[Rfam]
RNA: Archaeal large subunit ribosomal RNA, nucleotides 893 to 1341
RNA sequence: CCUCCCGAGACUACUCGUAGGUAGAUCUCUGAUGAGAUCGGUUGUGAGGUAGAGCACUAAUUAGGUGUUUAGGGGAGGAAACUCCUCGACAUCUUGUUAAACUCCGAAUUUGCAACCAUCGUAGAUUCAGGGUAGUGAGGGCAUCUGGGGUAAGCUUGGUGUCCGAAAGGGAAACAACCCAGCCUUGUGUUAAGGUCCCAAAGUAUCAGCUAAGUGUUAUAGAACAAAGAGAGUCUGUAACCUCAGACAACCAGGAGGUUGGCUUAGAAGCAGCCAUCCUUUAAAGAAAGCGUAACAGCUCACUGGUCGAGGUUGUGGGCCUUGAAAAUGGACGGGGCUCAAGCUGAUCACCGAUACAUAAGCACUCCGAAAGGAGAUUGAGUAGGGAGGCGUCGUGCGUGGGUGGAAGUUUGGCCGUGAGGUCAAGUGGACCGCGUACGAACGAGAAU
Numbered sequence: 001c002c003u004c005c006c007g008a009g010a011c012u013a014c015u016c017g018u019a020g021g022u023a024g025a026u027c028u029c030u031g032a033u034g035a036g037a038u039c040g041g042u043u044g045u046g047a048g049g050u051a052g053a054g055c056a057c058u059a060a061u062u063a064g065g066u067g068u069u070u071a072g073g074g075g076a077g078g079a080a081a082c083u084c085c086u087c088g089a090c091a092u093c094u095u096g097u098u099a100a101a102c103u104c105c106g107a108a109u110u111u112g113c114a115a116c117c118a119u120c121g122u123a124g125a126u127u128c129a130g131g132g133u134a135g136u137g138a139g140g141g142c143a144u145c146u147g148g149g150g151u152a153a154g155c156u157u158g159g160u161g162u163c164c165g166a167a168a169g170g171g172a173a174a175c176a177a178c179c180c181a182g183c184c185u186u187g188u189g190u191u192a193a194g195g196u197c198c199c200a201a202a203g204u205a206u207c208a209g210c211u212a213a214g215u216g217u218u219a220u221a222g223a224a225c226a227a228a229g230a231g232a233g234u235c236u237g238u239a240a241c242c243u244c245a246g247a248c249a250a251c252c253a254g255g256a257g258g259u260u261g262g263c264u265u266a267g268a269a270g271c272a273g274c275c276a277u278c279c280u281u282u283a284a285a286g287a288a289a290g291c292g293u294a295a296c297a298g299c300u301c302a303c304u305g306g307u308c309g310a311g312g313u314u315g316u317g318g319g320c321c322u323u324g325a326a327a328a329u330g331g332a333c334g335g336g337g338c339u340c341a342a343g344c345u346g347a348u349c350a351c352c353g354a355u356a357c358a359u360a361a362g363c364a365c366u367c368c369g370a371a372a373g374g375a376g377a378u379u380g381a382g383u384a385g386g387g388a389g390g391c392g393u394c395g396u397g398c399g400u401g402g403g404u405g406g407a408a409g410u411u412u413g414g415c416c417g418u419g420a421g422g423u424c425a426a427g428u429g430g431a432c433c434g435c436g437u438a439c440g441a442a443c444g445a446g447a448a449u
Base pairs, nucleotide, nucleotide: 001390002389003388004387005386006385011024012023013022014021015020026135027132028131029130030129031128032127036120037119038118040117041116042115043114044113045112046111047110052105053103054102059098060097061096063094064093065092066091067090068089072087073086074085075084076083077082139164140163141162142161143160144159145158147157148156169180170179171178184362185361186360187359188358189357190356194352195351196350203349205348206347207346208345209344210343229323230322231321233320234319235318236317237316238315239314240313241312242311250307251306252305253304254303256280257279258278261275262274263273281285286301290299291298363380364379365376366375367374368373391444393441394440395439396438397437398436399435400434401433402432409428410427411426412425413424414423415422416421